c-di-AMP riboswitch aptamer (ydaO/yuaA leader): a 182-nucleotide sequence from Aeoliella straminimaris.

[Rfam]
RNA sequence: AAACUCAUGCAGCCUAAUUCUGCGUCGCCAGGACGCGGAUACGGGGGACCCAAUUGGAAGCGGUCGAUGUGGUGCGUUUACCUCAUCAAUGCUUCCCGGGGCGCAGAUUCGCCUUGUGCGAAUCGGAGCACUUUCCAGCUCUAGCCCGUCAGCUAACCUCGUCGGCCGGUCGGGCACGUGUC
Numbered sequence: 001a002a003a004c005u006c007a008u009g010c011a012g013c014c015u016a017a018u019u020c021u022g023c024g025u026c027g028c029c030a031g032g033a034c035g036c037g038g039a040u041a042c043g044g045g046g047g048a049c050c051c052a053a054u055u056g057g058a059a060g061c062g063g064u065c066g067a068u069g070u071g072g073u074g075c076g077u078u079u080a081c082c083u084c085a086u087c088a089a090u091g092c093u094u095c096c097c098g099g100g101g102c103g104c105a106g107a108u109u110c111g112c113c114u115u116g117u118g119c120g121a122a123u124c125g126g127a128g129c130a131c132u133u134u135c136c137a138g139c140u141c142u143a144g145c146c147c148g149u150c151a152g153c154u155a156a157c158c159u160c161g162u163c164g165g166c167c168g169g170u171c172g173g174g175c176a177c178g179u180g181u182c
Stems, first nucleotide, its partner, number of pairs: 012166003019039008041162006051098001099147003107123004126141004